[Rfam]
The record is an 83-nucleotide RNA from Salmo trutta, which matches "mir-130 microRNA precursor family" in Rfam. It scores 47 bits against the family's covariance model. On this family, see Houbaviy et al., Dev Cell 2003: "Embryonic stem cell-specific MicroRNAs". NCBI's taxonomy places the organism under Eukaryota, Metazoa, Eumetazoa, Gnathostomata, Salmo. Rfam links the family to the GO terms RISC complex and miRNA-mediated post-transcriptional gene silencing.
RNA sequence: AAUGGCACCCUAUGCCCUUUAUAGUGCCCUACUGUGGGCCCUGGUCAAAAGUAGUGCACUAUUAAGGGCAUAGGGUGCCAUUU
Numbered sequence: 001a002a003u004g005g006c007a008c009c010c011u012a013u014g015c016c017c018u019u020u021a022u023a024g025u026g027c028c029c030u031a032c033u034g035u036g037g038g039c040c041c042u043g044g045u046c047a048a049a050a051g052u053a054g055u056g057c058a059c060u061a062u063u064a065a066g067g068g069c070a071u072a073g074g075g076u077g078c079c080a081u082u083u
Stems, first nucleotide, its partner, number of pairs: 001083002005078006012071008022061006029054002